[Rfam]
RNA: c-di-GMP-I riboswitch aptamer
Organism: Ureibacillus sinduriensis
RNA sequence: AUUUGAAAAAGGCAAAUCUAUUGAAAGAUAGAGACGCAAAGUUACAGAUCUAAGGGUUAACUAUGAUGGCUGGGCUACCAAA
Numbered sequence: 001a002u003u004u005g006a007a008a009a010a011g012g013c014a015a016a017u018c019u020a021u022u023g024a025a026a027g028a029u030a031g032a033g034a035c036g037c038a039a040a041g042u043u044a045c046a047g048a049u050c051u052a053a054g055g056g057u058u059a060a061c062u063a064u065g066a067u068g069g070c071u072g073g074g075c076u077a078c079c080a081a082a
Base pairs, nucleotide, nucleotide: 012037013036017032018031019030020029021028022027040076041075042074043073045072046071047070048067049066050065055061